[Rfam]
RNA sequence: GCGAGGUGACGAUGAAAUUCAUAAGUCUGUCAAUCCACUGAUUAAAGUGUGAUGUCAACAAUGAAUCCCGACAGGUUCUGAUCGC
Numbered sequence: 001g002c003g004a005g006g007u008g009a010c011g012a013u014g015a016a017a018u019u020c021a022u023a024a025g026u027c028u029g030u031c032a033a034u035c036c037a038c039u040g041a042u043u044a045a046a047g048u049g050u051g052a053u054g055u056c057a058a059c060a061a062u063g064a065a066u067c068c069c070g071a072c073a074g075g076u077u078c079u080g081a082u083c084g085c
Base pairs, nucleotide, nucleotide: 001085002084003083004082
The family of this 85-nucleotide RNA sequence from Handroanthus impetiginosus is "Small nucleolar RNA snoR14".
The base pairs follow the family's consensus structure.
The source organism's lineage runs through Eukaryota, Streptophyta, Lamiales, Crescentiina and Handroanthus.
The family has 7 seed sequences and 668 matches in Rfam 15.1.
Clan: SNORD110 clan.
A search with the family's covariance model found it, with a score of 92 bits.
The literature on the family includes a 2001 paper in RNA by Brown et al., "Multiple snoRNA gene clusters from Arabidopsis".